A member of the RNA family "TPP riboswitch aptamer (THI element)" from Ereboglobus luteus, 100 nucleotides long. The organism belongs to Ereboglobus, within Bacteria. About the family: Vitamin B(1) in its active form thiamin pyrophosphate (TPP) is an essential coenzyme that is synthesised by coupling of pyrimidine and thiazole moieties in bacteria. The previously detected thiamin-regulatory element, thi box was extended, resulting in a new, highly conserved RNA secondary structure, the THI element, which is widely distributed in eubacteria and also occurs in some archaea. Analysis of operon structures identified a large number of new candidate thiamin-regulated genes, mostly transporters, in various prokaryotic organisms. It scores 64 bits against the family's covariance model. The base pairs follow the family's consensus structure, which is taken from published work.
[Rfam]
RNA sequence: UCUAGUGACACGGGGUGCUUCCGCCCGAGGGAAGCUGAGAACAAACCCGUCGAACCUGAUCCGGUUAAUACCGGCGAAGGGAAUCGUCACAGCCGCGCCG
Numbered sequence: 001u002c003u004a005g006u007g008a009c010a011c012g013g014g015g016u017g018c019u020u021c022c023g024c025c026c027g028a029g030g031g032a033a034g035c036u037g038a039g040a041a042c043a044a045a046c047c048c049g050u051c052g053a054a055c056c057u058g059a060u061c062c063g064g065u066u067a068a069u070a071c072c073g074g075c076g077a078a079g080g081g082a083a084u085c086g087u088c089a090c091a092g093c094c095g096c097g098c099c100g
Base pairs, nucleotide, nucleotide: 006089007088008087009086011049012048013047014046016043017035018034019033020032021031055080056079057078061074062073063072064071